RNA sequence: CUAUGUCAUAAAUAUGACAUGGCGAAAGGAG
Numbered sequence: 001c002u003a004u005g006u007c008a009u010a011a012a013u014a015u016g017a018c019a020u021g022g023c024g025a026a027a028g029g030a031g
Stems, first nucleotide, its partner, number of pairs: 001022008

This 31-nucleotide RNA belongs to the Rfam family "L31-Firmicutes ribosomal protein leader". The family's consensus secondary structure is taken from published work. It is one of the family's seed sequences. Clan: Ribosomal Protein L31 Leader clan. The literature on the family includes a 2020 paper in BMC Microbiol by Eckert and Weinberg, "Discovery of 20 novel ribosomal leader candidates in bacteria and archaea". Rfam classes the family as a cis-regulatory leader.